[Rfam]
RNA sequence: CGCCCGAUGAACUGCAGUGGUCUGUGGUGUAGGCUUGAAACCUGUGGCUGACUAACGUCAGAGUGGUUCGAUUCCAUCCUCCGGCC
Numbered sequence: 001c002g003c004c005c006g007a008u009g010a011a012c013u014g015c016a017g018u019g020g021u022c023u024g025u026g027g028u029g030u031a032g033g034c035u036u037g038a039a040a041c042c043u044g045u046g047g048c049u050g051a052c053u054a055a056c057g058u059c060a061g062a063g064u065g066g067u068u069c070g071a072u073u074c075c076a077u078c079c080u081c082c083g084g085c086c
Base pairs, nucleotide, nucleotide: 002085003084004083006081007080009078012027013026014025015024016023017022028046029045030044031043032042033041048061049060050059051058052057063077064076065075066074
A member of the RNA family "Selenocysteine transfer RNA" from Acanthosepion pharaonis, 86 nucleotides long. It scores 53 bits against the family's covariance model.